Description: This 52-nucleotide sequence from Microcebus murinus belongs to the Rfam family "mir-1302 microRNA precursor family".
RNA sequence: AUUUUAGUAUAAGUAUGUUCCGUGCAAUAUUGGGAGCAUACUUAUCCUAAAA
Numbered sequence: 001a002u003u004u005u006a007g008u009a010u011a012a013g014u015a016u017g018u019u020c021c022g023u024g025c026a027a028u029a030u031u032g033g034g035a036g037c038a039u040a041c042u043u044a045u046c047c048u049a050a051a052a
Base pairs, nucleotide, nucleotide: 006048007047009045010044011043012042014040015039016038018036019035020034021033022031
NCBI's taxonomy places the organism under Eukaryota, Bilateria, Sarcopterygii, Mammalia, Microcebus. For this family Rfam cites "Application of massively parallel sequencing to microRNA profiling and discovery in human embryonic stem cells" (Morin et al., Genome Res, 2008).